This 375-nucleotide RNA sequence from Sphingomonas ginsenosidivorax belongs to the Rfam family "Bacterial RNase P class A". From the family's description: Ribonuclease P (RNase P) is a ubiquitous endoribonuclease, found in archaea, bacteria and eukarya as well as chloroplasts and mitochondria. The match comes from Rfam's covariance-model search (287 bits).
RNA sequence: CCAGAGGGUCGGGCGACCGCGGGUGCCGCAAGGCACGCGAGGAAAGUCCGGGCUCCGCGGAACGACGGUGCCGGGUAACGCCCGGCGGGGGUGACCCCAGGGACAGUGCCACAGAGAGCAAACGGCUAAGGCUUCGGCCCAGUCAGCGUGAAAGGGUGCGGUAAGAGCGCACCGCGCGCCUGGUAACAGGGGCGGCACGGCAAACCCCACCGGGAGCAAGACCGAAUAGGGGUGGCACAGGGGCUUCGUUCCAGCUCGUCACCCGGGUUGGUUGCUUGAGGCGGCGCGCAAGCGUCGUCCUAGAGGAAUGGUCGCCCAACUUCCGGUCGAAGGAUCGGGAAUGGACAGAACCCGGCUUACAGACCCUCUGGCACA
Numbered sequence: 001c002c003a004g005a006g007g008g009u010c011g012g013g014c015g016a017c018c019g020c021g022g023g024u025g026c027c028g029c030a031a032g033g034c035a036c037g038c039g040a041g042g043a044a045a046g047u048c049c050g051g052g053c054u055c056c057g058c059g060g061a062a063c064g065a066c067g068g069u070g071c072c073g074g075g076u077a078a079c080g081c082c083c084g085g086c087g088g089g090g091g092u093g094a095c096c097c098c099a100g101g102g103a104c105a106g107u108g109c110c111a112c113a114g115a116g117a118g119c120a121a122a123c124g125g126c127u128a129a130g131g132c133u134u135c136g137g138c139c140c141a142g143u144c145a146g147c148g149u150g151a152a153a154g155g156g157u158g159c160g161g162u163a164a165g166a167g168c169g170c171a172c173c174g175c176g177c178g179c180c181u182g183g184u185a186a187c188a189g190g191g192g193c194g195g196c197a198c199g200g201c202a203a204a205c206c207c208c209a210c211c212g213g214g215a216g217c218a219a220g221a222c223c224g225a226a227u228a229g230g231g232g233u234g235g236c237a238c239a240g241g242g243g244c245u246u247c248g249u250u251c252c253a254g255c256u257c258g259u260c261a262c263c264c265g266g267g268u269u270g271g272u273u274g275c276u277u278g279a280g281g282c283g284g285c286g287c288g289c290a291a292g293c294g295u296c297g298u299c300c301u302a303g304a305g306g307a308a309u310g311g312u313c314g315c316c317c318a319a320c321u322u323c324c325g326g327u328c329g330a331a332g333g334a335u336c337g338g339g340a341a342u343g344g345a346c347a348g349a350a351c352c353c354g355g356c357u358u359a360c361a362g363a364c365c366c367u368c369u370g371g372c373a374c375a
Stems, first nucleotide, its partner, number of pairs: 001371010011360001012316007020039002023036005044358003048355005053216004061250004066212005071085005086100001087098004101207002106205002108201003125143003130138001155173006174196001175194003179190004220273004230264006241257005280299008